[Rfam]
RNA sequence: CCCGCUGCUAGACGGAAAGACCCCGUGAACCUUUACUGUAGCUUUGCAUUGGACUUUGAACAGACUUGUGUAGGAUAGGUGGGAGGCUUUGAAGCCAGGACGCUAGUUCUGGUGGAGCCGUCCUUGAAAUACCACCCUGGUGUGUUUGAGGUUCUAACCUUGGUCCGUGAUCCGGAUUGGGGACAGUGCAUGGUAGGCAGUUUGACUGGGGCGGUCUCCUCCCAAAGUGUAACGGAGGAGUUCGAAGGUUACCUAGGUACGGUCGGAAAUCGUGCUGAUAGUGCAAUGGCAAAAGGUAGCUUAACUGCGAGACCGACAAGUCGAGCAGGUGCGAAAGCAGGACAUAGUGAUCCGGUGGUUCUGAAUGGAAGGGCCAUCGCUCAACGGAUAAAAGGUACUCCGGGGAUAACAGGCUGAUACCGCCCAAGAGUUCACAUCGACGGCGGUGUUUGGCACCUCGAUGUCGGCUCAUCACAUCCUGGGGCUGUAGCCGGUCCCAAGGGUAUGGCUGUUCGCCAUUUAAAGUGGUACGUGAGCUGGGUUCAAAACGUCGUGAGACAGUUUGGUCCCUAUCUGCAGUGGGCGUU
Numbered sequence: 001c002c003c004g005c006u007g008c009u010a011g012a013c014g015g016a017a018a019g020a021c022c023c024c025g026u027g028a029a030c031c032u033u034u035a036c037u038g039u040a041g042c043u044u045u046g047c048a049u050u051g052g053a054c055u056u057u058g059a060a061c062a063g064a065c066u067u068g069u070g071u072a073g074g075a076u077a078g079g080u081g082g083g084a085g086g087c088u089u090u091g092a093a094g095c096c097a098g099g100a101c102g103c104u105a106g107u108u109c110u111g112g113u114g115g116a117g118c119c120g121u122c123c124u125u126g127a128a129a130u131a132c133c134a135c136c137c138u139g140g141u142g143u144g145u146u147u148g149a150g151g152u153u154c155u156a157a158c159c160u161u162g163g164u165c166c167g168u169g170a171u172c173c174g175g176a177u178u179g180g181g182g183a184c185a186g187u188g189c190a191u192g193g194u195a196g197g198c199a200g201u202u203u204g205a206c207u208g209g210g211g212c213g214g215u216c217u218c219c220u221c222c223c224a225a226a227g228u229g230u231a232a233c234g235g236a237g238g239a240g241u242u243c244g245a246a247g248g249u250u251a252c253c254u255a256g257g258u259a260c261g262g263u264c265g266g267a268a269a270u271c272g273u274g275c276u277g278a279u280a281g282u283g284c285a286a287u288g289g290c291a292a293a294a295g296g297u298a299g300c301u302u303a304a305c306u307g308c309g310a311g312a313c314c315g316a317c318a319a320g321u322c323g324a325g326c327a328g329g330u331g332c333g334a335a336a337g338c339a340g341g342a343c344a345u346a347g348u349g350a351u352c353c354g355g356u357g358g359u360u361c362u363g364a365a366u367g368g369a370a371g372g373g374c375c376a377u378c379g380c381u382c383a384a385c386g387g388a389u390a391a392a393a394g395g396u397a398c399u400c401c402g403g404g405g406a407u408a409a410c411a412g413g414c415u416g417a418u419a420c421c422g423c424c425c426a427a428g429a430g431u432u433c434a435c436a437u438c439g440a441c442g443g444c445g446g447u448g449u450u451u452g453g454c455a456c457c458u459c460g461a462u463g464u465c466g467g468c469u470c471a472u473c474a475c476a477u478c479c480u481g482g483g484g485c486u487g488u489a490g491c492c493g494g495u496c497c498c499a500a501g502g503g504u505a506u507g508g509c510u511g512u513u514c515g516c517c518a519u520u521u522a523a524a525g526u527g528g529u530a531c532g533u534g535a536g537c538u539g540g541g542u543u544c545a546a547a548a549c550g551u552c553g554u555g556a557g558a559c560a561g562u563u564u565g566g567u568c569c570c571u572a573u574c575u576g577c578a579g580u581g582g583g584c585g586u587u
Base pairs, nucleotide, nucleotide: 001583002582003581004580005579006578007577008576010575011574012573014570015569022404023403024402025401027400028399029396030395031394032393033392035201036200037199038198042193043192045190046189047188048187051154052153053152054151055150056149057148058147059146060145061144062143064141065140066139068137078136079135080134081133082132085119086118087117094113095112096111097110098109099108100107101106158181159180160179162178163177164176165175166174167173204216205215206214207213217239218238219237220236221235222234240385242342243341248300249299250298251297252296253295254280255279257275258274259273260272261271262270281290282289305328306327307326308325311322312321313320330339331338332337353379354378355377356376357375358374359373361372362371413454414453415452417451418448419447420446421445422444423443424442428438429437465540466538467537468536469535470532471529472528473527474526475525478503479502481498482497483496484495485494486493505519506518507517508516509515546564547563548562549561550559551558552557
The record is a 587-nucleotide part of an RNA from Chromobacterium violaceum, which matches "Bacterial large subunit ribosomal RNA" in Rfam. Rfam links the family to the GO terms ribosome and structural constituent of ribosome. The match comes from Rfam's covariance-model search (2846 bits).